[Rfam]
Nucleotides: 381
Base pairs, nucleotide, nucleotide: 001347002346003345004344010341011340012339013338014337015336016335018333019332020331035059036058037057038056039055044049060104061103063101064100065099066098067097068096069093070092071091072090073089074084075083076082077081105109117326118325119324120323121322122321123320124318125317128142129141130140145181146180147179148178149177150176151175152174156168157167158166159165185312186311187310189243190242191241194240195239196236197235198234199233201232204231205230206229212223213222214221215220244262245261246260247259248258249257263267283299284298285297286296287295360377361376362375363374364373
Number, partner (000 for none) and nucleotide at each position: 001347u002346a003345g004344a005000a006000c007000a008000a009000u010341g011340u012339a013338g014337a015336u016335a017000a018333g019332g020331g021000a022000a023000g024000u025000c026000g027000g028000c029000a030000a031000a032000a033000u034000a035059g036058a037057u038056c039055c040000g041000u042000a043000a044049c045000u046000u047000u048000g049044g050000g051000a052000a053000a054000a055039g056038g057037a058036u059035u060104g061103g062000c063101u064100c065099c066098a067097g068096g069093g070092g071091u072090u073089g074084c075083g076082a077081u078000g079000u080000a081077a082076u083075c084074g085000a086000u087000a088000u089073c090072a091071a092070c093069u094000a095000a096068u097067c098066u099065g100064g101063a102000a103061c104060u105109g106000g107000u108000a109105c110000g111000g112000a113000c114000a115000u116000g117326g118325g119324g120323a121322a122321u123320c124318u125317g126000a127000c128142u129141g130140u131000c132000u133000a134000a135000u136000u137000a138000a139000a140130a141129c142128a143000u144000a145181g146180c147179a148178u149177u150176g151175c152174g153000a154000u155000g156168g157167c158166c159165a160000g161000a162000a163000a164000g165159u166158g167157g168156u169000g170000u171000u172000g173000a174152c175151g176150c177149a178148a179147u180146g181145u182000g183000a184000u185312u186311u187310c188000u189243g190242c191241c192000c193000a194240g195239u196236g197235c198234u199233c200000u201232g202000a203000a204231u205230g206229u207000c208000a209000a210000a211000g212223u213222g214221a215220a216000g217000a218000a219000a220215u221214u222213c223212a224000a225000c226000c227000a228000a229206g230205c231204g232201c233199g234198g235197g236196u237000a238000a239195a240194c241191g242190g243189c244262g245261g246260g247259a248258g249257u250000a251000a252000c253000u254000a255000u256000g257249a258248c259247u260246c261245u262244c263267u264000u265000a266000a267263g268000g269000u270000a271000g272000c273000c274000a275000a276000a277000u278000g279000c280000c281000u282000c283299g284298u285297c286296a287295u288000c289000u290000a291000a292000u293000u294000a295287g296286u297285g298284a299283c300000g301000c302000g303000c304000a305000u306000g307000a308000a309000u310187g311186g312185a313000u314000u315000a316000a317125c318124g319000a320123g321122a322121u323120u324119c325118c326117c327000a328000c329000u330000g331020u332019c333018c334000c335016u336015a337014u338013c339012u340011a341010c342000u343000a344004u345003c346002u347001a348000g349000c350000g351000a352000a353000a354000c355000c356000a357000c358000a359000g360377c361376c362375a363374a364373g365000g366000g367000a368000a369000c370000g371000g372000g373364c374363u375362u376361g377360g378000c379000a380000g381000a